This 169-nucleotide sequence from Medicago truncatula belongs to the Rfam family "MIR2619 microRNA precursor family". Pairs were carried over by alignment from the consensus structure, which was predicted with RNAalifold.
RNA sequence: AAACCGCCCCCUAAGUUUUGCAACUGUUGUAGUUUUGGCCCACAAAGGCCAAUUUUUGGUAAAAAAUAACACGUGGCACCUCACUUAGGGUGUCACGUCAGCGUAGACCGAGUCAAAAUUAGCCUUGGGGGUCAAAACUGCCAUAAAUGCAAAACUUAUGGGGCAGUUU
Numbered sequence: 001a002a003a004c005c006g007c008c009c010c011c012u013a014a015g016u017u018u019u020g021c022a023a024c025u026g027u028u029g030u031a032g033u034u035u036u037g038g039c040c041c042a043c044a045a046a047g048g049c050c051a052a053u054u055u056u057u058g059g060u061a062a063a064a065a066a067u068a069a070c071a072c073g074u075g076g077c078a079c080c081u082c083a084c085u086u087a088g089g090g091u092g093u094c095a096c097g098u099c100a101g102c103g104u105a106g107a108c109c110g111a112g113u114c115a116a117a118a119u120u121a122g123c124c125u126u127g128g129g130g131g132u133c134a135a136a137a138c139u140g141c142c143a144u145a146a147a148u149g150c151a152a153a154a155c156u157u158a159u160g161g162g163g164c165a166g167u168u169u
Stems, first nucleotide, its partner, number of pairs: 001169002004166001006164003012158011025145003029141013043127003071098002074095007